[Rfam]
RNA: mir-35_2 microRNA precursor family
Organism: Caenorhabditis brenneri
RNA sequence: AGCUGGUUUCUUCUUCGGUGAUAAUUCCAUUUAGUGUUUAUCACCGAAAGCAAACUCGCUCU
Numbered sequence: 001a002g003c004u005g006g007u008u009u010c011u012u013c014u015u016c017g018g019u020g021a022u023a024a025u026u027c028c029a030u031u032u033a034g035u036g037u038u039u040a041u042c043a044c045c046g047a048a049a050g051c052a053a054a055c056u057c058g059c060u061c062u
Stems, first nucleotide, its partner, number of pairs: 001060003005056005010050003016046008